[Rfam]
RNA: MAT2A 3'UTR stem loop F
RNA sequence: CCUGGGAGAGGCAGAUUUGGCCGGUGUUGUACAGAGAAGCCGGCCUGUUUACAUGCUCUCUCCAUA
Numbered sequence: 001c002c003u004g005g006g007a008g009a010g011g012c013a014g015a016u017u018u019g020g021c022c023g024g025u026g027u028u029g030u031a032c033a034g035a036g037a038a039g040c041c042g043g044c045c046u047g048u049u050u051a052c053a054u055g056c057u058c059u060c061u062c063c064a065u066a
Stems, first nucleotide, its partner, number of pairs: 003064004010057003014049003019045007026032002